[Rfam]
Nucleotides: 057
Base pairs, nucleotide, nucleotide: 018037019036020035021034022033023032024031025030
Number, partner (000 for none) and nucleotide at each position: 001000c002000g003000a004000a005000a006000g007000u008000a009000u010000u011000u012000u013000a014000c015000g016000a017000u018037u019036a020035a021034g022033a023032a024031u025030c026000a027000a028000c029000u030025g031024g032023u033022u034021u035020u036019u037018g038000u039000a040000c041000a042000g043000a044000u045000c046000g047000u048000g049000u050000a051000u052000a053000a054000a055000u056000u057000u

This 57-nucleotide RNA from Dionaea muscipula belongs to the Rfam family "Plastid-rps18 3UTR RNA". The family has 238 seed sequences and 1,462 matches in Rfam 15.1. About the family: Plastid rps18 is a non-coding RNA (ncRNA) present in plastids. It was identified as a short stem-loop motif in the 3 prime untranslate region (3UTR) of rps18 gene. NCBI's taxonomy places the organism under Eukaryota, Streptophytina, Mesangiospermae, eudicotyledons, Dionaea. The family's consensus secondary structure was predicted with LocARNA. It is annotated as a cis-regulatory element. The literature on the family includes a 2023 paper in Plant Commun by Richter et al., "Retrograde signaling in plants: A critical review focusing on the GUN pathway and beyond".